[Rfam]
RNA sequence: AACGUCUUUCGGGGUAGGGUGCAAUUCCCAACCGGCGGUGAACUUUUCGAAGCAGUCCGCGACCUACUUUUCGAAGUAGCUGAACUAGUGAAAAUCUAGUACCGACAGUACAGUCUGGAUGAGAGAAAGGAACG
Numbered sequence: 001a002a003c004g005u006c007u008u009u010c011g012g013g014g015u016a017g018g019g020u021g022c023a024a025u026u027c028c029c030a031a032c033c034g035g036c037g038g039u040g041a042a043c044u045u046u047u048c049g050a051a052g053c054a055g056u057c058c059g060c061g062a063c064c065u066a067c068u069u070u071u072c073g074a075a076g077u078a079g080c081u082g083a084a085c086u087a088g089u090g091a092a093a094a095u096c097u098a099g100u101a102c103c104g105a106c107a108g109u110a111c112a113g114u115c116u117g118g119a120u121g122a123g124a125g126a127a128a129g130g131a132a133c134g
Stems, first nucleotide, its partner, number of pairs: 005130006017029003031114002033104002035060004055102002064079002084100005106117003
RNA: FMN riboswitch aptamer (RFN element)